[Rfam]
RNA sequence: CUUUCUUACGCAUAAUAGACCACCUCUAUACAUUUUACUGUUCCUGUUGAAUUUGAAACAGGUAUAGAAAAACGUGUUAAAUAGUUUUUCAGUUCCUAUUAAAUUACAUUCUUAAAAGCACUACUCAACUUCAAUAAAAAAACCGUUGUUUGGAAAUGCUAUUCGUGCUGUAAAAAUAUAAAUCUCACUUUCAAAUGGCGGUUUAAUGGAGAUAAACGUCGCCAUGAGAUAUAUUACAUAUAGU
Numbered sequence: 001c002u003u004u005c006u007u008a009c010g011c012a013u014a015a016u017a018g019a020c021c022a023c024c025u026c027u028a029u030a031c032a033u034u035u036u037a038c039u040g041u042u043c044c045u046g047u048u049g050a051a052u053u054u055g056a057a058a059c060a061g062g063u064a065u066a067g068a069a070a071a072a073c074g075u076g077u078u079a080a081a082u083a084g085u086u087u088u089u090c091a092g093u094u095c096c097u098a099u100u101a102a103a104u105u106a107c108a109u110u111c112u113u114a115a116a117a118g119c120a121c122u123a124c125u126c127a128a129c130u131u132c133a134a135u136a137a138a139a140a141a142a143c144c145g146u147u148g149u150u151u152g153g154a155a156a157u158g159c160u161a162u163u164c165g166u167g168c169u170g171u172a173a174a175a176a177u178a179u180a181a182a183u184c185u186c187a188c189u190u191u192c193a194a195a196u197g198g199c200g201g202u203u204u205a206a207u208g209g210a211g212a213u214a215a216a217c218g219u220c221g222c223c224a225u226g227a228g229a230u231a232u233a234u235u236a237c238a239u240a241u242a243g244u
Stems, first nucleotide, its partner, number of pairs: 002108001004106001007103001013101005028077004033072004038067004043062006078091001080089002119158002122155001124153002127150001128146002195225003199221004204216001
Dot-bracket structure: .(.(..(.....(((((..........((((.((((.((((.((((((........)))))).)))).)))).))))(.((......)).).....))))).)..).)..........((.(.((.(((...............))...).)).).))....................................(((.((((.(...........).)))).)))...................
A member of the RNA family "Cis-regulator of HTH transcription factor" from Clostridioides difficile, 244 nucleotides long. The source organism's lineage runs through Bacteria, Bacillati, Clostridia, Peptostreptococcaceae and Clostridioides. The family's consensus secondary structure was predicted with LocARNA. It is annotated as a cis-regulatory element. A reference for the family is Soutourina et al. (2013), "Genome-wide identification of regulatory RNAs in the human pathogen Clostridium difficile", PLoS Genet.